[Rfam]
Rfam assigns this 183-nucleotide RNA from Paracidovorax valerianellae to the family "Manganese Mn2+ riboswitch aptamer (yybP-ykoY)". On this family, see Argaman et al., Curr Biol 2001: "Novel small RNA-encoding genes in the intergenic regions of Escherichia coli". The source organism's lineage runs through Bacteria, Betaproteobacteria, Burkholderiales, Comamonadaceae and Paracidovorax.

RNA sequence: UUGGGGAGUAGCCGGCUUUCGUGCAAUGUAUUUCGAGCGUUGUACGAAGGCGCCUGCGUCAACACACUCGGCAUGCUGCAUGCCGUGGCGCCGGCAACCGUUGCGGUUGGCGAGACCAUCGGCAUGCCACCGCGACGACAGGUCGGGCAGCGGGGGCGUGCCUUUGCGCUCGCCCGGCCGCAC
Dot-bracket structure: ...............(((((((((((((.........))))))))))))).(((.((((((.......(((((.......))))))))))).)))......(((...........................................................................))).